[Rfam]
RNA sequence: CACUGAUAAGGGCAAACCAACUGAAAAGUUGGGACGCAAAGCCACCGGUCUAAAGGUUUUUACCUAUGACAGCGGGGUUGCCAGU
Numbered sequence: 001c002a003c004u005g006a007u008a009a010g011g012g013c014a015a016a017c018c019a020a021c022u023g024a025a026a027a028g029u030u031g032g033g034a035c036g037c038a039a040a041g042c043c044a045c046c047g048g049u050c051u052a053a054a055g056g057u058u059u060u061u062a063c064c065u066a067u068g069a070c071a072g073c074g075g076g077g078u079u080g081c082c083a084g085u
Base pairs, nucleotide, nucleotide: 012037013036017032018031019030020029021028022027040079041078042077043076045075046074047073048070049069050068055064056063057062
Overview
c-di-GMP-I riboswitch aptamer: an 85-nucleotide RNA sequence from Woeseia oceani. Lineage of the source: Bacteria > Pseudomonadati > Pseudomonadota > Woeseiales > Woeseia.